Shown here is a 266-nucleotide RNA from Salinicoccus roseus, a member of the family "Bacterial large signal recognition particle RNA". NCBI's taxonomy places the organism under Bacteria, Bacillati, Caryophanales, Staphylococcaceae, Salinicoccus. On this family, see Rosenblad et al., Nucleic Acids Res 2003: "SRPDB: Signal Recognition Particle Database". The match comes from Rfam's covariance-model search (218 bits). The family's RNA type in Rfam is non-coding RNA gene.

RNA sequence: CCGUGCUAAGUGGGGAGGUAGCGGUGCCCUGUACCUGCAAUCCGCUCCAGCAGGACCGAAUUCCGCUUCCGAGGAUACUCGGUGUGAGGACUGCCUUGAUCUCACCAGUGUUGAGAUCCCGGUCCUAUGCAAUAGAACGUCACGAACCAUGUCAGGUCCGGAAGGAAGCAGCAUUAAGUGGCCCAUUCUAUGUGCCGUAGGACAGCCGGGGUUGAGCUGGUGGAUCGAGUAACGCUUGUGCCGGGUGUUCGAAGAGCGGUGCACGG
Numbered sequence: 001c002c003g004u005g006c007u008a009a010g011u012g013g014g015g016a017g018g019u020a021g022c023g024g025u026g027c028c029c030u031g032u033a034c035c036u037g038c039a040a041u042c043c044g045c046u047c048c049a050g051c052a053g054g055a056c057c058g059a060a061u062u063c064c065g066c067u068u069c070c071g072a073g074g075a076u077a078c079u080c081g082g083u084g085u086g087a088g089g090a091c092u093g094c095c096u097u098g099a100u101c102u103c104a105c106c107a108g109u110g111u112u113g114a115g116a117u118c119c120c121g122g123u124c125c126u127a128u129g130c131a132a133u134a135g136a137a138c139g140u141c142a143c144g145a146a147c148c149a150u151g152u153c154a155g156g157u158c159c160g161g162a163a164g165g166a167a168g169c170a171g172c173a174u175u176a177a178g179u180g181g182c183c184c185a186u187u188c189u190a191u192g193u194g195c196c197g198u199a200g201g202a203c204a205g206c207c208g209g210g211g212u213u214g215a216g217c218u219g220g221u222g223g224a225u226c227g228a229g230u231a232a233c234g235c236u237u238g239u240g241c242c243g244g245g246u247g248u249u250c251g252a253a254g255a256g257c258g259g260u261g262c263a264c265g266g
Stems, first nucleotide, its partner, number of pairs: 001266006010056002012030004017025001019023001034054005063259006073250005079244010092231002096228006104221002107218003115213009124201006130192002133190005139182005149174004157166003
Pairs were carried over by alignment from the consensus structure, which is taken from published work.